[Rfam]
RNA sequence: AACCUUCUGCAUACGAGCCAAGAUUUCAUCAAACACCCGAUCAUCAGGACUGACGAGGCUUACAAGAUACAUGAAGCG
Numbered sequence: 001a002a003c004c005u006u007c008u009g010c011a012u013a014c015g016a017g018c019c020a021a022g023a024u025u026u027c028a029u030c031a032a033a034c035a036c037c038c039g040a041u042c043a044u045c046a047g048g049a050c051u052g053a054c055g056a057g058g059c060u061u062a063c064a065a066g067a068u069a070c071a072u073g074a075a076g077c078g
Stems, first nucleotide, its partner, number of pairs: 003076001005074002008071002011068002017063001020061003024058004029053002
mir-3492 microRNA precursor family: a 78-nucleotide RNA from Schistosoma japonicum.
Pairs were carried over by alignment from the consensus structure, which was predicted with RNAalifold.
Rfam 15.1 lists 21,496 matches to the family in 13 species.
A search with the family's covariance model found it, with a score of 48 bits.